[Rfam]
About this RNA
This 151-nucleotide RNA from Caenorhabditis latens belongs to the Rfam family "Caenorhabditis snoRNA ceN104". A search with the family's covariance model found it, with a score of 103 bits. Taxonomically the source falls in Caenorhabditis (Eukaryota, Ecdysozoa, Rhabditoidea, Peloderinae). The literature on the family includes a 2007 paper in BMC Mol Biol by Jia et al., "Systematic identification of non-coding RNA 2,2,7-trimethylguanosine cap structures in Caenorhabditis elegans".
RNA sequence: AGGCAACUUUUUCACAACUUCACUUCAAUUUCAUAACUUUUGAUGAUUGUAUUAAUCAGAAGUUGAACGGGAAUGCUAAAUAAGUCUAGCUCGAGAUGCGUGUGCUGGUUUGCUGUUGUGCGAUCUGGUUCCUUUUCUCCUCGGGACAAUU
Numbered sequence: 001a002g003g004c005a006a007c008u009u010u011u012u013c014a015c016a017a018c019u020u021c022a023c024u025u026c027a028a029u030u031u032c033a034u035a036a037c038u039u040u041u042g043a044u045g046a047u048u049g050u051a052u053u054a055a056u057c058a059g060a061a062g063u064u065g066a067a068c069g070g071g072a073a074u075g076c077u078a079a080a081u082a083a084g085u086c087u088a089g090c091u092c093g094a095g096a097u098g099c100g101u102g103u104g105c106u107g108g109u110u111u112g113c114u115g116u117u118g119u120g121c122g123a124u125c126u127g128g129u130u131c132c133u134u135u136u137c138u139c140c141u142c143g144g145g146a147c148a149a150u151u
Base pairs, nucleotide, nucleotide: 003076004075005074008071016031017030019028020027035064036063037062038061040059041058042057043056044055090145091144092143093142094141095140098137104129105128106127107126108125110123111122112121113120